mir-315 microRNA precursor family: an 82-nucleotide sequence from Drosophila albomicans. A search with the family's covariance model found it, with a score of 80 bits. A reference for the family is Stark et al. (2007), "Systematic discovery and characterization of fly microRNAs using 12 Drosophila genomes", Genome Res. NCBI's taxonomy places the organism under Eukaryota, Insecta, Acalyptratae, Drosophila, Drosophila.
RNA sequence: CGCCUAUAUCCUUUUGAUUGUUGCUCAGAAAGCCUGUUUUUUAAUACUCGGCUUUCGAGUAAUAAUCGAAACCAAAUAGACG
Numbered sequence: 001c002g003c004c005u006a007u008a009u010c011c012u013u014u015u016g017a018u019u020g021u022u023g024c025u026c027a028g029a030a031a032g033c034c035u036g037u038u039u040u041u042u043a044a045u046a047c048u049c050g051g052c053u054u055u056c057g058a059g060u061a062a063u064a065a066u067c068g069a070a071a072c073c074a075a076a077u078a079g080a081c082g
Stems, first nucleotide, its partner, number of pairs: 001082002004079004012071007020063007028056007